[Rfam]
RNA sequence: GGUGGCGGUCGCGACUGGCGAGGGUGGGGUUCACCACCGGGGAGCGGCCGAUCGUCCCUGUGCAGCGCCGUCCGCCUGGGCGCCUGGG
Dot-bracket structure: ...(.(((((((..(([[[[...((((......))))..))..))))))).)............(((((...]]]]..))))).....
Numbered sequence: 001g002g003u004g005g006c007g008g009u010c011g012c013g014a015c016u017g018g019c020g021a022g023g024g025u026g027g028g029g030u031u032c033a034c035c036a037c038c039g040g041g042g043a044g045c046g047g048c049c050g051a052u053c054g055u056c057c058c059u060g061u062g063c064a065g066c067g068c069c070g071u072c073c074g075c076c077u078g079g080g081c082g083c084c085u086g087g088g
Stems, first nucleotide, its partner, number of pairs: 004052001006050007015041002017076004024037004065083005